[Rfam]
RNA sequence: GAUAAAGCAGGCGAGAAACCUGCUCACCGAUAGACUAAGGUUUCCUGAACAACGCUAAUCGGUUCAGGGUUAGUCGGGACCUAAGGCGAACCCGAAUGGGGUAGUCGAUGGAAAACGGGUUAAUAUUCCCGUACUUGUGUAUACUGCGAUGGGGUGACGGAGUAGUGAAAGUCCUGCGUACUGACGGAAUAGUACGUUGAAGCCAGUAGAUAUAGGCACUGUAGGUAAAUCCGCAGAGCUUGUCGAAGGUGAUAGUACUCGGAGUCUUCGGAUGAUGAGAUAUGGACCUAAUCAGACUUCCAAGAAAAACCUCUAAGCUUCAGGUAUAUACAACUCGUACCGCAAACCGACACAGGUAGUCAAGGAGAGAAUCCUAAGGUGCU
Numbered sequence: 001g002a003u004a005a006a007g008c009a010g011g012c013g014a015g016a017a018a019c020c021u022g023c024u025c026a027c028c029g030a031u032a033g034a035c036u037a038a039g040g041u042u043u044c045c046u047g048a049a050c051a052a053c054g055c056u057a058a059u060c061g062g063u064u065c066a067g068g069g070u071u072a073g074u075c076g077g078g079a080c081c082u083a084a085g086g087c088g089a090a091c092c093c094g095a096a097u098g099g100g101g102u103a104g105u106c107g108a109u110g111g112a113a114a115a116c117g118g119g120u121u122a123a124u125a126u127u128c129c130c131g132u133a134c135u136u137g138u139g140u141a142u143a144c145u146g147c148g149a150u151g152g153g154g155u156g157a158c159g160g161a162g163u164a165g166u167g168a169a170a171g172u173c174c175u176g177c178g179u180a181c182u183g184a185c186g187g188a189a190u191a192g193u194a195c196g197u198u199g200a201a202g203c204c205a206g207u208a209g210a211u212a213u214a215g216g217c218a219c220u221g222u223a224g225g226u227a228a229a230u231c232c233g234c235a236g237a238g239c240u241u242g243u244c245g246a247a248g249g250u251g252a253u254a255g256u257a258c259u260c261g262g263a264g265u266c267u268u269c270g271g272a273u274g275a276u277g278a279g280a281u282a283u284g285g286a287c288c289u290a291a292u293c294a295g296a297c298u299u300c301c302a303a304g305a306a307a308a309a310c311c312u313c314u315a316a317g318c319u320u321c322a323g324g325u326a327u328a329u330a331c332a333a334c335u336c337g338u339a340c341c342g343c344a345a346a347c348c349g350a351c352a353c354a355g356g357u358a359g360u361c362a363a364g365g366a367g368a369g370a371a372u373c374c375u376a377a378g379g380u381g382c383u
Stems, first nucleotide, its partner, number of pairs: 006024006025381004033361004039341002044068006053061002075337004080111002085106003089102001091100003115132005135333011146318002151313005159300004165293001171287004176197006198261002202256002205253001211247001216239002219236004224232002265278002268275002347356002363375004
Rfam assigns this 383-nucleotide part of an RNA from Croceimicrobium hydrocarbonivorans to the family "Bacterial large subunit ribosomal RNA". It scores 2828 bits against the family's covariance model. Taxonomically the source falls in Croceimicrobium (Bacteria, Pseudomonadati, Bacteroidota, Flavobacteriales).